Shown here is an 89-nucleotide RNA from Isoptericola sediminis, a member of the family "ZMP/ZTP riboswitch aptamer (pfl RNA motif)".
[Rfam]
RNA sequence: UCGACUGGUCGUGACUGGCGUGCAGGUGGAUCACCACCGGGAAGCGACAACGCUGUGCUGACGACGGGUCGGUCGCCUGGGCCCGGUCG
Numbered sequence: 001u002c003g004a005c006u007g008g009u010c011g012u013g014a015c016u017g018g019c020g021u022g023c024a025g026g027u028g029g030a031u032c033a034c035c036a037c038c039g040g041g042a043a044g045c046g047a048c049a050a051c052g053c054u055g056u057g058c059u060g061a062c063g064a065c066g067g068g069u070c071g072g073u074c075g076c077c078u079g080g081g082c083c084c085g086g087u088c089g
Stems, first nucleotide, its partner, number of pairs: 003053001006050001008048005015041002017077004026037004066084005
The organism belongs to Isoptericola, within Bacteria.